[Rfam]
RNA sequence: AGUAAGGAUAGAGGCGCAGAGACCAUGAGUACAUAAUUUGAGGAUGAUGAGGUCCGAUGACGAUUGUGAAAAGGGGAAUCUGCCGAAGCUGAAAGAAUCUCAUAUUUCUUGAAGCUGGGUCUGUUAUUGAAUAAAUACAGAACUGUCAUAUAGGAAAAAACUAUAUGGAGGGCUAUCUUACGC
Numbered sequence: 001a002g003u004a005a006g007g008a009u010a011g012a013g014g015c016g017c018a019g020a021g022a023c024c025a026u027g028a029g030u031a032c033a034u035a036a037u038u039u040g041a042g043g044a045u046g047a048u049g050a051g052g053u054c055c056g057a058u059g060a061c062g063a064u065u066g067u068g069a070a071a072a073g074g075g076g077a078a079u080c081u082g083c084c085g086a087a088g089c090u091g092a093a094a095g096a097a098u099c100u101c102a103u104a105u106u107u108c109u110u111g112a113a114g115c116u117g118g119g120u121c122u123g124u125u126a127u128u129g130a131a132u133a134a135a136u137a138c139a140g141a142a143c144u145g146u147c148a149u150a151u152a153g154g155a156a157a158a159a160a161c162u163a164u165a166u167g168g169a170g171g172g173c174u175a176u177c178u179u180a181c182g183c
Stems, first nucleotide, its partner, number of pairs: 006178006016083005023076002032068007087116004093110005117144002120141004125137004146168007
RNA: Lysine riboswitch aptamer
Organism: Bacillus sp. FJAT-27231